The record is a 157-nucleotide RNA sequence from Mycoplana dimorpha, which matches "Rhizobiales sRNA Atu_C7" in Rfam. It scores 51 bits against the family's covariance model. NCBI's taxonomy places the organism under Bacteria, Pseudomonadati, Hyphomicrobiales, Rhizobiaceae, Mycoplana. Rfam classes the family as a small RNA.
RNA sequence: CGAGCAGGAGGAACAUCUCUUCUUUCGGCACGAAUAUCACAAGCUUUACAGCAGGUUCUCCCGGCGCGUCUUAUUCAUGCGGCAGGUGCUCCCUCCCUCGCCUGCUCCUGAUGCGCCCACCUGGCCUCGCUCGUCCACAGGGCCGGCGAGGCAAUUU
Numbered sequence: 001c002g003a004g005c006a007g008g009a010g011g012a013a014c015a016u017c018u019c020u021u022c023u024u025u026c027g028g029c030a031c032g033a034a035u036a037u038c039a040c041a042a043g044c045u046u047u048a049c050a051g052c053a054g055g056u057u058c059u060c061c062c063g064g065c066g067c068g069u070c071u072u073a074u075u076c077a078u079g080c081g082g083c084a085g086g087u088g089c090u091c092c093c094u095c096c097c098u099c100g101c102c103u104g105c106u107c108c109u110g111a112u113g114c115g116c117c118c119a120c121c122u123g124g125c126c127u128c129g130c131u132c133g134u135c136c137a138c139a140g141g142g143c144c145g146g147c148g149a150g151g152c153a154a155u156u157u
Stems, first nucleotide, its partner, number of pairs: 063117008082105007124152007132145002135142002
The literature on the family includes a 2012 paper in RNA Biol by Wilms et al., "Deep sequencing uncovers numerous small RNAs on all four replicons of the plant pathogen Agrobacterium tumefaciens".